RNA sequence: AUAAUGAUAGUCGCCUAAUGGCGAUUUUUUUAUAGCCGAAAUCUAGUCAAAUCAAACCUUUCAAAGGUACCCCCAAAUUG
Numbered sequence: 001a002u003a004a005u006g007a008u009a010g011u012c013g014c015c016u017a018a019u020g021g022c023g024a025u026u027u028u029u030u031u032a033u034a035g036c037c038g039a040a041a042u043c044u045a046g047u048c049a050a051a052u053c054a055a056a057c058c059u060u061u062c063a064a065a066g067g068u069a070c071c072c073c074c075a076a077a078u079u080g
Stems, first nucleotide, its partner, number of pairs: 009026007035048001036046001038044001057067004
RNA: Aggregatibacter sRNA 82
Organism: Pseudohaemophilus minor